[Rfam]
RNA sequence: CGGAGCGGGUGGGUCGAGGCCUCGGCCCGGUGCGACCCUGGCGUACUUCCCCAACGCCAGGUGCGAGAUCGGGCCGAGACCCCGCCUCAUCCGGGAACCGCA
Numbered sequence: 001c002g003g004a005g006c007g008g009g010u011g012g013g014u015c016g017a018g019g020c021c022u023c024g025g026c027c028c029g030g031u032g033c034g035a036c037c038c039u040g041g042c043g044u045a046c047u048u049c050c051c052c053a054a055c056g057c058c059a060g061g062u063g064c065g066a067g068a069u070c071g072g073g074c075c076g077a078g079a080c081c082c083c084g085c086c087u088c089a090u091c092c093g094g095g096a097a098c099c100g101c102a
Stems, first nucleotide, its partner, number of pairs: 010089004015084002018081002021078011033065002037061008
RNA: mraW RNA
Organism: Gordonia rhizosphera